[Rfam]
RNA: Group II catalytic intron D1-D4-4
Organism: Gemmatimonas sp.
RNA sequence: CAACGGGUGCAAGUCCCGUCCCGGUAAGCGCCGCAGCGCCGGGUAGCAGGCCCCAGCCCCGGGGGGAGACCCCCGCGGCCGAGCGGGGCGUCAAGAGCCUCUUCGGAGGGAGCAAGCGCGCGGGCUGCGACUGCA
Number, nucleotide and partner (000 for none) at each position: 001c000002a000003a000004c000005g000006g000007g000008u000009g000010c000011a000012a000013g000014u000015c000016c000017c000018g000019u000020c043021c042022c041023g040024g039025u000026a000027a000028g000029c000030g000031c000032c000033g000034c000035a000036g000037c000038g000039c024040c023041g022042g021043g020044u000045a000046g000047c000048a000049g000050g089051c088052c087053c086054c085055a000056g079057c078058c077059c000060c075061g000062g000063g000064g071065g070066g000067a000068g000069a000070c065071c064072c000073c000074c000075g060076c000077g058078g057079c056080c000081g000082a000083g000084c000085g054086g053087g052088g051089c050090g000091u000092c000093a000094a000095g000096a000097g000098c109099c108100u107101c106102u000103u000104c000105g000106g101107a100108g099109g098110g000111a000112g128113c127114a126115a000116g000117c000118g000119c000120g000121c000122g000123g000124g000125c000126u114127g113128c112129g000130a000131c000132u000133g000134c000135a000